[Rfam]
Rfam assigns this 79-nucleotide RNA from Sinocyclocheilus anshuiensis to the family "mir-27 microRNA precursor family".
The match comes from Rfam's covariance-model search (74 bits).
The base pairs follow the family's consensus structure, which was predicted with RNAalifold.
RNA sequence: GUGAGGUGCAGGACUUAGCUCACUCUGUGAACAGCUCUCAGAUAUCCUAUGUUCACAGUGGCUAAGUUCCGCUCCUCUG
Numbered sequence: 001g002u003g004a005g006g007u008g009c010a011g012g013a014c015u016u017a018g019c020u021c022a023c024u025c026u027g028u029g030a031a032c033a034g035c036u037c038u039c040a041g042a043u044a045u046c047c048u049a050u051g052u053u054c055a056c057a058g059u060g061g062c063u064a065a066g067u068u069c070c071g072c073u074c075c076u077c078u079g
Stems, first nucleotide, its partner, number of pairs: 011069010027056007